[Rfam]
RNA sequence: AAGUUAUCAUUUUCAGUGUAGGAUAUAACUC
Numbered sequence: 001a002a003g004u005u006a007u008c009a010u011u012u013u014c015a016g017u018g019u020a021g022g023a024u025a026u027a028a029c030u031c
Base pairs, nucleotide, nucleotide: 002030003029004028005027006026007025009024010023011022012021013020014018
The family of this 31-nucleotide sequence from Paragonimus skrjabini miyazakii is "Iron response element II". IRE, TFRC, SLC40A1, SDHB, SLC11A2, CDC42BPA, ACO2, ALAS2_H.SAPIENS, CDC14A, EPAS1, ALAS2, qoxD, Hao1, NDUFS1, transferrin, Aconitate. Gene Ontology term of the family: response to iron ion. The family has 30 seed sequences and 5,197 matches in Rfam 15.1.